[Rfam]
Nucleotides: 067
Stems, first nucleotide, its partner, number of pairs: 004061007016048003025037002
Number, partner (000 for none) and nucleotide at each position: 001000g002000a003000a004061c005060g006059g007058g008057g009056a010055c011000u012000c013000u014000c015000u016048g017047g018046a019000u020000g021000c022000c023000u024000u025037u026036a027000c028000u029000u030000u031000c032000a033000g034000u035000g036026u037025a038000g039000a040000a041000c042000u043000g044000u045000a046018u047017c048016c049000u050000c051000a052000u053000c054000g055010g056009u057008u058007c059006c060005c061004g062000a063000a064000g065000a066000u067000g
The record is a 67-nucleotide RNA sequence from Strigomonas culicis, which matches "Trypanosomatid snoRNA TB10Cs5H3" in Rfam. The source organism's lineage runs through Eukaryota, Euglenozoa, Metakinetoplastina, Trypanosomatidae and Strigomonas. By type it is an H/ACA-box small nucleolar RNA. The family's consensus secondary structure was predicted with WAR. Rfam links the family to the GO terms nucleolus and RNA processing. A search with the family's covariance model found it, with a score of 52 bits.